[Rfam]
RNA sequence: GCUGUACAUGAUGACAACUGGCUCCCUCUACUGAACUGCCAUGAGGAAACUGCCAUGUCACCCUUCUGACUACAGC
Numbered sequence: 001g002c003u004g005u006a007c008a009u010g011a012u013g014a015c016a017a018c019u020g021g022c023u024c025c026c027u028c029u030a031c032u033g034a035a036c037u038g039c040c041a042u043g044a045g046g047a048a049a050c051u052g053c054c055a056u057g058u059c060a061c062c063c064u065u066c067u068g069a070c071u072a073c074a075g076c
Base pairs, nucleotide, nucleotide: 001076002075003074004073005072006071
Rfam assigns this 76-nucleotide sequence to the family "Small nucleolar RNA SNORD100". Rfam 15.1 lists 838 matches to the family in 626 species. Gene Ontology terms of the family: nucleolus and RNA processing. For this family Rfam cites "Purified box C/D snoRNPs are able to reproduce site-specific 2'-O-methylation of target RNA in vitro" (Galardi et al., Mol Cell Biol, 2002). The sequence is in the family's curated seed alignment. By type it is a C/D-box small nucleolar RNA. The family is grouped with related families in Rfam's "SNORD100 clan".